RNA sequence: AAAUUUAAUAGGCAAACUUAAAGAAAUUUAAGGACGCAAAGCUAUAGGGGUUAAGGUUUUAAAAACUAUGCCAGCCAGUUGCCGAA
Dot-bracket structure: ...........((...((((((....))))))...))..((((...(((((....((((...))))...)))..))))))......
A member of the RNA family "c-di-GMP-I riboswitch aptamer" from Clostridium baratii, 86 nucleotides long. The base pairs follow the family's consensus structure, which is taken from published work. From the family's description: GEMM was predicted in a large-scale screen for bacterial structured RNA regulatory elements. Its Rfam clan is "c-di-GMP_I riboswitch clan".